[Rfam]
RNA sequence: GACAGUCCUCGUUAGGCGAGGCGUCUAUGCGAAUACAUGCCACUGCCCGGAAACGUGGAAACACGCCAAUGGGUUGAACAGGUACUGCCGGAUUAAGGCUUUACUUAACGUGGCCGGGUGAGAACCCUACGUCGUAUAGUGCCAAAGCUCAACUAGGGGGAUUGUG
Numbered sequence: 001g002a003c004a005g006u007c008c009u010c011g012u013u014a015g016g017c018g019a020g021g022c023g024u025c026u027a028u029g030c031g032a033a034u035a036c037a038u039g040c041c042a043c044u045g046c047c048c049g050g051a052a053a054c055g056u057g058g059a060a061a062c063a064c065g066c067c068a069a070u071g072g073g074u075u076g077a078a079c080a081g082g083u084a085c086u087g088c089c090g091g092a093u094u095a096a097g098g099c100u101u102u103a104c105u106u107a108a109c110g111u112g113g114c115c116g117g118g119u120g121a122g123a124a125c126c127c128u129a130c131g132u133c134g135u136a137u138a139g140u141g142c143c144a145a146a147g148c149u150c151a152a153c154u155a156g157g158g159g160g161a162u163u164g165u166g
Stems, first nucleotide, its partner, number of pairs: 005162006011153002013096001015149003020143003025139008039114005045074005054065004081105004087099003116127003
RNA: M-box riboswitch aptamer (ykoK leader)
Organism: Paenalicyclobacillus ferrooxydans